[Rfam]
RNA: L31-Corynebacteriaceae ribosomal protein leader
RNA sequence: ACUCGGGCACGAUCCUUGGAUGCGCGUGCUGCCGGCUGGCUCCAGUGGGGCUGCGCGGCGAAGCCUCGCAAGGAACCGACCCGUAGUUCAACCCUGAGGGA
Numbered sequence: 001a002c003u004c005g006g007g008c009a010c011g012a013u014c015c016u017u018g019g020a021u022g023c024g025c026g027u028g029c030u031g032c033c034g035g036c037u038g039g040c041u042c043c044a045g046u047g048g049g050g051c052u053g054c055g056c057g058g059c060g061a062a063g064c065c066u067c068g069c070a071a072g073g074a075a076c077c078g079a080c081c082c083g084u085a086g087u088u089c090a091a092c093c094c095u096g097a098g099g100g101a
Stems, first nucleotide, its partner, number of pairs: 001087003004083004013074006